[Rfam]
Nucleotides: 439
Base pairs, nucleotide, nucleotide: 004021005020006019007018008017009016028241029240032238033237034236043232044231047230049228050227052222053221055219061217062216063215066212068210069209070208071207073206074205075204080175081174082173084171091165092164093163094162096161097160098159100121101119103117138147139146140145177192178191179190181188246336247335248334249333257265258264268326270324271323272322273321277318278317279315283308285306286305290303292301344357345356347355348354359383362380363377364376365375367373386408387407388406390404391403393401423439424438
Number, partner (000 for none) and nucleotide at each position: 001000a002000c003000u004021g005020g006019u007018u008017u009016g010000g011000a012000a013000g014000u015000a016009c017008a018007g019006g020005c021004c022000u023000a024000u025000u026000u027000a028241u029240g030000u031000u032238a033237g034236u035000c036000a037000g038000u039000u040000u041000a042000a043232a044231g045000u046000u047230g048000u049228u050227c051000u052222c053221c054000g055219u056000u057000u058000a059000g060000c061217g062216u063215u064000a065000u066212c067000c068210u069209u070208g071207a072000u073206a074205c075204c076000u077000c078000u079000u080175c081174a082173u083000u084171g085000c086000g087000a088000a089000u090000u091165c092164c093163u094162u095000c096161u097160a098159a099000u100121u101119a102000a103117u104000u105000c106000c107000c108000a109000u110000a111000a112000g113000u114000a115000a116000a117103a118000a119101u120000a121100a122000a123000a124000a125000a126000c127000a128000a129000a130000c131000c132000u133000c134000a135000u136000a137000u138147g139146c140145c141000u142000u143000a144000u145140g146139g147138c148000g149000a150000u151000u152000u153000a154000a155000a156000a157000a158000a159098u160097u161096a162094a163093a164092g165091g166000a167000a168000a169000u170000u171084c172000u173082a174081u175080g176000u177192c178191u179190a180000a181188u182000a183000c184000a185000a186000u187000g188181a189000c190179u191178g192177g193000u194000u195000c196000a197000g198000u199000a200000a201000a202000a203000u204075g205074g206073u207071u208070u209069g210068a211000u212066g213000a214000a215063g216062g217061u218000a219055a220000a221053g222052g223000u224000u225000u226000u227050g228049g229000u230047u231044u232043u233000a234000u235000u236034a237033c238032u239000c240029c241028a242000g243000c244000a245000g246336a247335u248334g249333g250000u251000a252000g253000u254000a255000a256000a257265g258264a259000u260000g261000u262000g263000u264258u265257u266000g267000u268326a269000c270324a271323u272322u273321u274000u275000u276000c277318u278317g279315c280000a281000a282000u283308c284000c285306a286305a287000a288000g289000u290303g291000a292301u293000a294000a295000c296000u297000u298000c299000a300000a301292a302000a303290c304000a305286u306285u307000a308283g309000c310000u311000g312000a313000a314000g315279g316000c317278c318277a319000a320000c321273a322272a323271g324270u325000u326268u327000c328000a329000u330000u331000u332000a333249c334248u335247a336246u337000g338000g339000a340000a341000a342000a343000u344357g345356g346000a347355a348354u349000g350000a351000a352000a353000g354348g355347u356345c357344c358000u359383g360000c361000u362380g363377c364376u365375g366000g367373c368000a369000a370000u371000g372000u373367g374000g375365u376364g377363g378000c379000u380362c381000u382000c383359u384000a385000a386408a387407g388406g389000c390404g391403c392000u393401a394000u395000u396000a397000c398000a399000a400000u401393u402000u403391g404390u405000c406388u407387c408386u409000a410000u411000u412000u413000u414000a415000a416000a417000u418000g419000c420000c421000c422000u423439u424438g425000u426000u427000g428000u429000a430000g431000c432000a433000g434000u435000u436000c437000a438424c439423a